Shown here is a 266-nucleotide sequence from Nicator chloris, a member of the family "RNase MRP". Rfam's curators write: RNase MRP is an enzymatically active ribonucleoprotein with two distinct roles in eukaryotes. In mitochondria it plays a direct role in the initiation of mitochondrial DNA replication. In the nucleus it is involved in precursor rRNA processing, where it cleaves the internal transcribed spacer 1 between 18S and 5.8S rRNAs. It is annotated as a ribozyme. Lineage of the source: Eukaryota > Metazoa > Sarcopterygii > Amniota > Nicator. The family's consensus secondary structure is taken from published work.
[Rfam]
Nucleotides: 266
Stems, first nucleotide, its partner, number of pairs: 003266001005264001007262002010259002015220005023075002026071003037053001039051003043047001080252002083250003095107004108123006125193001127191001131189002134187004140182001142180001151177004162169002223237002226234002
Number, partner (000 for none) and nucleotide at each position: 001000g002000g003266a004000u005264g006000u007262u008261c009000g010259g011258a012000a013000g014000a015220c016219c017218u018217g019216c020000u021000u022000g023075c024074c025000a026071g027070g028069c029000c030000a031000u032000g033000c034000a035000u036000g037053g038000a039051g040050g041049a042000c043047c044000u045000c046000a047043g048000u049041u050040c051039c052000c053037c054000a055000u056000g057000g058000g059000c060000c061000c062000c063000a064000c065000g066000c067000c068000u069028g070027c071026c072000c073000a074024g075023g076000g077000g078000a079000a080252a081251g082000u083250c084249c085248c086000a087000g088000g089000a090000c091000c092000a093000c094000g095107a096106g097105c098104a099000g100000g101000g102000a103000a104098u105097g106096c107095u108123g109122g110121g111120c112119a113118c114000u115000g116000a117000u118113g119112u120111g121110c122109c123108c124000c125193u126000g127191c128000c129000u130000g131189c132188u133000g134187c135186c136185a137184c138000c139000c140182c141000a142180u143000a144000c145000c146000a147000c148000c149000c150000u151177c152176u153175g154174c155000c156000g157000a158000g159000a160000c161000a162169c163168c164000c165000a166000c167000g168163g169162g170000c171000c172000a173000a174154g175153c176152a177151g178000g179000u180142g181000a182140g183000u184137g185136u186135g187134g188132a189131g190000u191127g192000g193125g194000c195000c196000c197000u198000u199000u200000u201000c202000a203000c204000g205000a206000c207000c208000a209000c210000a211000g212000a213000c214000a215000c216019g217018c218017a219016g220015g221000c222000a223237g224236c225000a226234c227233g228000g229000c230000a231000g232000a233227c234226g235000c236224g237223c238000c239000a240000a241000c242000a243000g244000a245000a246000u247000g248085g249084g250083g251081c252080u253000c254000a255000c256000u257000c258011u259010c260000a261008g262007g263000c264005u265000u266003u